The record is a 92-nucleotide RNA sequence from Rhodamnia argentea, which matches "Small nucleolar RNA snoR109" in Rfam.

RNA sequence: CGGCUGUAGCAACAUCCAACGCCUCAGAAGUUAACUGGCCGGUUAUUGUCAAACCUCCGUCGACAAAUCUGCUUACCGAACUUCUUACAUUC
Numbered sequence: 001c002g003g004c005u006g007u008a009g010c011a012a013c014a015u016c017c018a019a020c021g022c023c024u025c026a027g028a029a030g031u032u033a034a035c036u037g038g039c040c041g042g043u044u045a046u047u048g049u050c051a052a053a054c055c056u057c058c059g060u061c062g063a064c065a066a067a068u069c070u071g072c073u074u075a076c077c078g079a080a081c082u083u084c085u086u087a088c089a090u091u092c
Stems, first nucleotide, its partner, number of pairs: 026085007037073003041069004046063003

Description:
A search with the family's covariance model found it, with a score of 78 bits.